Rfam assigns this 57-nucleotide RNA from Ipomoea nil to the family "Plastid-ndhJ 3UTR RNA". The source organism's lineage runs through Eukaryota, Embryophyta, Spermatophyta, Magnoliopsida and Ipomoea. The family's consensus secondary structure was predicted with LocARNA. For this family Rfam cites "Retrograde signaling in plants: A critical review focusing on the GUN pathway and beyond" (Richter et al., Plant Commun, 2023). Rfam's curators write: Plastid ndhJ is a non-coding RNA (ncRNA) present in plastids. Rfam classes the family as a cis-regulatory element.
[Rfam]
RNA sequence: UCAGGAACUUUGUACUGCGCACAUUACUUAGACGGGUUCGAGAAAGUCAUGUAGGGG
Numbered sequence: 001u002c003a004g005g006a007a008c009u010u011u012g013u014a015c016u017g018c019g020c021a022c023a024u025u026a027c028u029u030a031g032a033c034g035g036g037u038u039c040g041a042g043a044a045a046g047u048c049a050u051g052u053a054g055g056g057g
Stems, first nucleotide, its partner, number of pairs: 019037002022034001024032002